[Rfam]
Nucleotides: 074
Stems, first nucleotide, its partner, number of pairs: 015070001027069005034062005039056003
Number, partner (000 for none) and nucleotide at each position: 001000u002000g003000g004000a005000g006000u007000g008000u009000g010000a011000g012000g013000a014000a015070a016000g017000a018000g019000u020000u021000a022000a023000g024000c025000a026000a027069a028068a029067a030066g031065c032000u033000u034062c035061u036060g037059g038058g039056g040055u041054c042000g043000a044000a045000a046000c047000a048000u049000g050000g051000a052000c053000a054041g055040a056039c057000u058038c059037c060036c061035a062034g063000a064000a065031g066030c067029u068028u069027u070015u071000u072000u073000a074000a